[Rfam]
RNA sequence: GGAGGCGUGAGGGCGGCUGGUGCCCCCCGCAGUCUUCAACACUGUUGUGGUCCGGGACCCGGGCCAGGCGGGUUCGAUUCCCGUCCGCCUCC
Numbered sequence: 001g002g003a004g005g006c007g008u009g010a011g012g013g014c015g016g017c018u019g020g021u022g023c024c025c026c027c028c029g030c031a032g033u034c035u036u037c038a039a040c041a042c043u044g045u046u047g048u049g050g051u052c053c054g055g056g057a058c059c060c061g062g063g064c065c066a067g068g069c070g071g072g073u074u075c076g077a078u079u080c081c082c083g084u085c086c087g088c089c090u091c092c
Base pairs, nucleotide, nucleotide: 001092002091003090004089005088006087007086009084012027013026015024016023017022029045030044031043032042033041048066049065050064051063052062069083070082071081072080
RNA: Selenocysteine transfer RNA
Organism: Dactylosporangium vinaceum